[Rfam]
RNA: ZMP/ZTP riboswitch aptamer (pfl RNA motif)
Organism: Streptomyces harbinensis
RNA sequence: CUCGCGGGCCGUGACUGGCGCGUCGGGAUGGACAACCAUCGGGGAGCGGCCCUCGCCGUCACGCGAGCAGGAGAGCCGUGCGCCUGGGCCACCGCG
Numbered sequence: 001c002u003c004g005c006g007g008g009c010c011g012u013g014a015c016u017g018g019c020g021c022g023u024c025g026g027g028a029u030g031g032a033c034a035a036c037c038a039u040c041g042g043g044g045a046g047c048g049g050c051c052c053u054c055g056c057c058g059u060c061a062c063g064c065g066a067g068c069a070g071g072a073g074a075g076c077c078g079u080g081c082g083c084c085u086g087g088g089c090c091a092c093c094g095c096g
Stems, first nucleotide, its partner, number of pairs: 003055002006052007015043002017084005028039004075089003